A member of the RNA family "Glycine riboswitch aptamer" from Roseobacter insulae, 88 nucleotides long. The base pairs follow the family's consensus structure. Rfam describes the family as follows. This family represents the bacterial glycine riboswitch. Glycine riboswitches usually consist of two metabolite-binding aptamers domains with similar structures in tandem. The aptamers cooperatively bind glycine to regulate the expression of downstream genes. In Bacillus subtilis, this riboswitch is found upstream of the gcvT operon which controls glycine degradation. Clan: Glycine riboswitch clan.
[Rfam]
RNA sequence: AAGGCUAUGCCGGGAGAAGGCGGGUGACACCGCCGCCGAAGGAGCAACCGCCCCGGAAACUCUCAGGUCCCAGGACCGGCAUGGUUUU
Dot-bracket structure: .....((((((((......((((......)))).(((((..(((...((.....))...))))).))).......)))))))).....